[Rfam]
RNA sequence: AUCUCUUUGCCUUUUGGCUUAGAUCAAGUGUAGUAUCUGUUCUUUUCAGUGUAACAACUGAAACGUCAUCAUUGAUGACUUUUAUAAAAUGUUACCUUUAUUUUUGGAUUAUUCGUUCGAAGGAUUGAUAAGCUUGCUUACACCUUUGGACACAGUGUCGUUGCUAUUGCACCAUAUUGGCUUCUGACGCAAUUUUUU
Numbered sequence: 001a002u003c004u005c006u007u008u009g010c011c012u013u014u015u016g017g018c019u020u021a022g023a024u025c026a027a028g029u030g031u032a033g034u035a036u037c038u039g040u041u042c043u044u045u046u047c048a049g050u051g052u053a054a055c056a057a058c059u060g061a062a063a064c065g066u067c068a069u070c071a072u073u074g075a076u077g078a079c080u081u082u083u084a085u086a087a088a089a090u091g092u093u094a095c096c097u098u099u100a101u102u103u104u105u106g107g108a109u110u111a112u113u114c115g116u117u118c119g120a121a122g123g124a125u126u127g128a129u130a131a132g133c134u135u136g137c138u139u140a141c142a143c144c145u146u147u148g149g150a151c152a153c154a155g156u157g158u159c160g161u162u163g164c165u166a167u168u169g170c171a172c173c174a175u176a177u178u179g180g181c182u183u184c185u186g187a188c189g190c191a192a193u194u195u196u197u198u
Stems, first nucleotide, its partner, number of pairs: 004023003009018003044063006065079006115151008129140004155190005163181004